Description:
The record is a 73-nucleotide RNA from bacterium A37T11, which matches "tRNA" in Rfam.

[Rfam]
RNA sequence: GGUACCAUAGCUCAGCUGGUAGAGCAAAGGACUGAAAAUCCUUGUGUCCCUGGUUCGAACCCAGGUGGUACCA
Numbered sequence: 001g002g003u004a005c006c007a008u009a010g011c012u013c014a015g016c017u018g019g020u021a022g023a024g025c026a027a028a029g030g031a032c033u034g035a036a037a038a039u040c041c042u043u044g045u046g047u048c049c050c051u052g053g054u055u056c057g058a059a060c061c062c063a064g065g066u067g068g069u070a071c072c073a
Base pairs, nucleotide, nucleotide: 001072002071003070004069005068006067007066010025011024012023013022027043028042029041030040031039049065050064051063052062053061
It is annotated as a transfer RNA.